[Rfam]
RNA sequence: AGAGGUACAUGUUUGAGGUCAUAGCAGAAGCGCUCAUGGUGCAGAUCUGUCAGAUUCCAAAGAAUCUGUAAAUUUUGCU
Numbered sequence: 001a002g003a004g005g006u007a008c009a010u011g012u013u014u015g016a017g018g019u020c021a022u023a024g025c026a027g028a029a030g031c032g033c034u035c036a037u038g039g040u041g042c043a044g045a046u047c048u049g050u051c052a053g054a055u056u057c058c059a060a061a062g063a064a065u066c067u068g069u070a071a072a073u074u075u076u077g078c079u
Base pairs, nucleotide, nucleotide: 015047018046019045020044023079024078025077026076027075028074029073030042031041032040051068052067053066054065055064056063057062
RNA: Mammalian CPEB3 ribozyme
Organism: Alligator mississippiensis